[Rfam]
RNA sequence: CCCCUAUGAGAAAGAAAAUCCAUAUGAUAGGAAGUGCCAUAUGACACUCCAAACAGCAACAAUAUA
Number, nucleotide and partner (000 for none) at each position: 001c000002c000003c000004c000005u000006a000007u000008g000009a000010g000011a000012a000013a000014g060015a000016a000017a000018a000019u000020c000021c000022a000023u000024a000025u000026g000027a000028u000029a000030g000031g050032a000033a048034g047035u046036g045037c000038c000039a000040u000041a000042u000043g000044a000045c036046a035047c034048u033049c000050c031051a000052a000053a000054c000055a000056g000057c000058a000059a000060c014061a000062a000063u000064a000065u000066a000
A member of the RNA family "Small nucleolar RNA U49" from Camellia sinensis, 66 nucleotides long. For this family Rfam cites "Multiple snoRNA gene clusters from Arabidopsis" (Brown et al., RNA, 2001). By type it is a C/D-box small nucleolar RNA. Pairs were carried over by alignment from the consensus structure, which was predicted with CMfinder.